RNA sequence: AAACGACAACCACCAAGGGCAGGAGCGGGGGACCCAGGUAAGCGCCGUACCACUGCGCAGCAGUGACACGGCUUGGGGUGAAGCCGCGCAUACGCGGCCGGGCAACUCCAGCCCGAACCCGACAGCUCACCUCGCAGGCGUGGGAGAGGAACA
Numbered sequence: 001a002a003a004c005g006a007c008a009a010c011c012a013c014c015a016a017g018g019g020c021a022g023g024a025g026c027g028g029g030g031g032a033c034c035c036a037g038g039u040a041a042g043c044g045c046c047g048u049a050c051c052a053c054u055g056c057g058c059a060g061c062a063g064u065g066a067c068a069c070g071g072c073u074u075g076g077g078g079u080g081a082a083g084c085c086g087c088g089c090a091u092a093c094g095c096g097g098c099c100g101g102g103c104a105a106c107u108c109c110a111g112c113c114c115g116a117a118c119c120c121g122a123c124a125g126c127u128c129a130c131c132u133c134g135c136a137g138g139c140g141u142g143g144g145a146g147a148g149g150a151a152c153a
Stems, first nucleotide, its partner, number of pairs: 004023001025135006035075005076120003084097004100114004
Source information
The record is a 153-nucleotide sequence from Wenjunlia vitaminophila, which matches "c-di-AMP riboswitch aptamer (ydaO/yuaA leader)" in Rfam. Taxonomically the source falls in Wenjunlia (Bacteria, Bacillati, Actinomycetota, Streptomycetaceae). This family represents a conserved RNA structure found upstream of the ydaO and yuaA genes in Bacillus subtilis and related genes in other bacteria. The ydaO/yuaA element is thought to act as a genetic 'off' switch for the ydaO and yuaA genes in its native state. It is believed that the element may be triggered during osmotic shock leading to activation of ydaO, a predicted amino acid transporter gene, and members of the yuaA-yubG operon which code for KtrA and KtrB K+ transporters.